The family of this 79-nucleotide RNA sequence from Peromyscus maniculatus is "Small nucleolar RNA SNORD121A". NCBI's taxonomy places the organism under Eukaryota, Teleostomi, Glires, Muroidea, Peromyscus maniculatus. Rfam links the family to the GO terms nucleolus and RNA processing. A search with the family's covariance model found it, with a score of 60 bits. The base pairs follow the family's consensus structure, which was predicted with WAR.
[Rfam]
RNA sequence: AGGGGAAAGACGAUGAUGUGUUUCCAAGCACAUAUCUGACUUAGAUGUGUGGAUGACAGUCAAGCUGAGUCUUUCCCGA
Dot-bracket structure: ..((((.((((.........................................................)))).))))..
Numbered sequence: 001a002g003g004g005g006a007a008a009g010a011c012g013a014u015g016a017u018g019u020g021u022u023u024c025c026a027a028g029c030a031c032a033u034a035u036c037u038g039a040c041u042u043a044g045a046u047g048u049g050u051g052g053a054u055g056a057c058a059g060u061c062a063a064g065c066u067g068a069g070u071c072u073u074u075c076c077c078g079a
Stems, first nucleotide, its partner, number of pairs: 003077004008072004